[Rfam]
RNA sequence: AAAAAGUCAAGGAAGAGGAAGAGUACGCAGAGAUCUAGGUGCCAAGAGAGCCGGCAAGCGGGUGGGAAGCUGGCCAUCUAAUUCUGUGGAAAAUCACCUCGGAGACGUCGCUGAACAGGUCCUUCCGGUUGUUUAUUUUGUGAGAGAUCUCGCAAAAUUCGCAUUUUUACUGCGGAACAGUCGGAUACCUUAGUAGGGUAUACCGGAGUCCCCCCGUUAUGGGGAAUGGCCCAAAUUGGGCCAGAGGGUUCAGCAUCUCUUCUUGUGUCACUUGCGGAGCCUGCAUUCAGAAGCUAAGGAAUGCGGUCUGCAAGGGAUGGGUGCUGAAAACGAGGGUGGUACCGCGGGUAAAUCCCGUCCCUUUU
Numbered sequence: 001a002a003a004a005a006g007u008c009a010a011g012g013a014a015g016a017g018g019a020a021g022a023g024u025a026c027g028c029a030g031a032g033a034u035c036u037a038g039g040u041g042c043c044a045a046g047a048g049a050g051c052c053g054g055c056a057a058g059c060g061g062g063u064g065g066g067a068a069g070c071u072g073g074c075c076a077u078c079u080a081a082u083u084c085u086g087u088g089g090a091a092a093a094u095c096a097c098c099u100c101g102g103a104g105a106c107g108u109c110g111c112u113g114a115a116c117a118g119g120u121c122c123u124u125c126c127g128g129u130u131g132u133u134u135a136u137u138u139u140g141u142g143a144g145a146g147a148u149c150u151c152g153c154a155a156a157a158u159u160c161g162c163a164u165u166u167u168u169a170c171u172g173c174g175g176a177a178c179a180g181u182c183g184g185a186u187a188c189c190u191u192a193g194u195a196g197g198g199u200a201u202a203c204c205g206g207a208g209u210c211c212c213c214c215c216g217u218u219a220u221g222g223g224g225a226a227u228g229g230c231c232c233a234a235a236u237u238g239g240g241c242c243a244g245a246g247g248g249u250u251c252a253g254c255a256u257c258u259c260u261u262c263u264u265g266u267g268u269c270a271c272u273u274g275c276g277g278a279g280c281c282u283g284c285a286u287u288c289a290g291a292a293g294c295u296a297a298g299g300a301a302u303g304c305g306g307u308c309u310g311c312a313a314g315g316g317a318u319g320g321g322u323g324c325u326g327a328a329a330a331c332g333a334g335g336g337u338g339g340u341a342c343c344g345c346g347g348g349u350a351a352a353u354c355c356c357g358u359c360c361c362u363u364u365u
Base pairs, nucleotide, nucleotide: 007105008104015100016099017098018097026088027087028086029085030084031083039077040076041075050074051073052072053071054070055069108200111197112196204216205215206214249328250327251326252325253324254323255322256321257320258319333362334361335360336359344358345357346356347355348354
RNA: T-box leader